[Rfam]
RNA sequence: GGAAUGACUGGGCGUAAAGGGCGUGUAGGCUGUUGAUCAAGUCAAGCGUGAAAGCCUCGGGCUUAACCCGAGAACUGCGUUUGAUACUGGUUGACUUGAGGACGAGAGAGGAAAGUGGAAUUCCGAGUGUAGAGGUGAAAUUCGUAGAUAUUCGGAGGAACAUCAGAGGCGAAGGCGGCUUUCUGGCUCGUAUCUGACGCUGAGGCGCGAAAGCGUGGGGAGCAAACAGGAUUAGAUACCCUGGUAGUCCACGCUGUAAACGAUGAGUGCUAGACGUUGGGGGGUUCCCCUUCAGUGUCGCAGCUAACGCAUUAAGCACUCCGCCUGGGGAGUACGGUCGCAAGAUUAAAACUCAAAGGAAU
Numbered sequence: 001g002g003a004a005u006g007a008c009u010g011g012g013c014g015u016a017a018a019g020g021g022c023g024u025g026u027a028g029g030c031u032g033u034u035g036a037u038c039a040a041g042u043c044a045a046g047c048g049u050g051a052a053a054g055c056c057u058c059g060g061g062c063u064u065a066a067c068c069c070g071a072g073a074a075c076u077g078c079g080u081u082u083g084a085u086a087c088u089g090g091u092u093g094a095c096u097u098g099a100g101g102a103c104g105a106g107a108g109a110g111g112a113a114a115g116u117g118g119a120a121u122u123c124c125g126a127g128u129g130u131a132g133a134g135g136u137g138a139a140a141u142u143c144g145u146a147g148a149u150a151u152u153c154g155g156a157g158g159a160a161c162a163u164c165a166g167a168g169g170c171g172a173a174g175g176c177g178g179c180u181u182u183c184u185g186g187c188u189c190g191u192a193u194c195u196g197a198c199g200c201u202g203a204g205g206c207g208c209g210a211a212a213g214c215g216u217g218g219g220g221a222g223c224a225a226a227c228a229g230g231a232u233u234a235g236a237u238a239c240c241c242u243g244g245u246a247g248u249c250c251a252c253g254c255u256g257u258a259a260a261c262g263a264u265g266a267g268u269g270c271u272a273g274a275c276g277u278u279g280g281g282g283g284g285u286u287c288c289c290c291u292u293c294a295g296u297g298u299c300g301c302a303g304c305u306a307a308c309g310c311a312u313u314a315a316g317c318a319c320u321c322c323g324c325c326u327g328g329g330g331a332g333u334a335c336g337g338u339c340g341c342a343a344g345a346u347u348a349a350a351a352c353u354c355a356a357a358g359g360a361a362u
Stems, first nucleotide, its partner, number of pairs: 011325003019322001021208004026202001028201003032095007040088002042084009056072006099195003102191005110184007117161001121157008132143003169176002213254006222248002227243004265321006273299012303310002327354003336347004
Dot-bracket structure: ..........(((.....(.((((.(.(((.(((((((.(((((((((((.....((((((.....))))))...)))))))))..)))))))))...((((((((...((((((((...((((((((...(((......)))......))))))))...).......((....)).)))))))..))))).)))...))))..))))....((((((...((...((((.........))))...))))))))..........((((((..((((((((((((...))))))))))))...((....)).....)))))))))).(((......((((....))))....)))........
Rfam assigns this 362-nucleotide part of an RNA from Caedimonas varicaedens to the family "Bacterial small subunit ribosomal RNA".
The family's consensus secondary structure is taken from published work.
The source organism's lineage runs through Bacteria, Pseudomonadota, Holosporales, Caedimonadaceae and Caedimonas.
The match comes from Rfam's covariance-model search (1557 bits).
The family has 99 seed sequences and 42,628 matches in Rfam 15.1.